Small nucleolar RNA sn2841: a 72-nucleotide sequence from Caenorhabditis auriculariae.

[Rfam]
Nucleotides: 072
Stems, first nucleotide, its partner, number of pairs: 001072004
Number, partner (000 for none) and nucleotide at each position: 001072c002071u003070g004069c005000g006000a007000u008000g009000a010000c011000g012000a013000u014000c015000a016000a017000c018000u019000c020000u021000u022000a023000c024000c025000u026000a027000c028000a029000a030000a031000g032000a033000c034000a035000c036000a037000c038000g039000c040000a041000a042000u043000g044000g045000c046000u047000u048000a049000a050000a051000g052000c053000u054000a055000c056000u057000c058000g059000u060000a061000c062000u063000g064000u065000c066000u067000g068000a069004g070003c071002a072001g
The family's consensus secondary structure was predicted with WAR. Rfam 15.1 lists 24 matches to the family in 22 species. Gene Ontology terms of the family: RNA processing and nucleolus. The match comes from Rfam's covariance-model search (75 bits).